[Rfam]
RNA sequence: CCAGCUCUCUUUGCCUUUUGGCUUAGAUCAAGUGUAGUAUCUGUUCUUUUAAGUUUAAUCGCUUAAAUUCCUCCACGGAGGUUUCCGAUUAAAUCGAUUUUUGAAACUAGCUGAUGAGUCCCUGGGCUUGCUCAUACUCAUCGGCACAGUGUCGUCUCUAUCGCACUACUUGAGACUGACGCGACCUUUU
Numbered sequence: 001c002c003a004g005c006u007c008u009c010u011u012u013g014c015c016u017u018u019u020g021g022c023u024u025a026g027a028u029c030a031a032g033u034g035u036a037g038u039a040u041c042u043g044u045u046c047u048u049u050u051a052a053g054u055u056u057a058a059u060c061g062c063u064u065a066a067a068u069u070c071c072u073c074c075a076c077g078g079a080g081g082u083u084u085c086c087g088a089u090u091a092a093a094u095c096g097a098u099u100u101u102u103g104a105a106a107c108u109a110g111c112u113g114a115u116g117a118g119u120c121c122c123u124g125g126g127c128u129u130g131c132u133c134a135u136a137c138u139c140a141u142c143g144g145c146a147c148a149g150u151g152u153c154g155u156c157u158c159u160a161u162c163g164c165a166c167u168a169c170u171u172g173a174g175a176c177u178g179a180c181g182c183g184a185c186c187u188u189u190u
Stems, first nucleotide, its partner, number of pairs: 008027003013022003048067006070081004110145008123134004149182005154176005
The record is a 190-nucleotide RNA from Pyrenophora tritici-repentis, which matches "U2 spliceosomal RNA" in Rfam.
It is one of the family's seed sequences.
The family's consensus secondary structure is taken from published work.
For this family Rfam cites "The uRNA database" (Zwieb, Nucleic Acids Res, 1997).
It is annotated as a spliceosomal small nuclear RNA.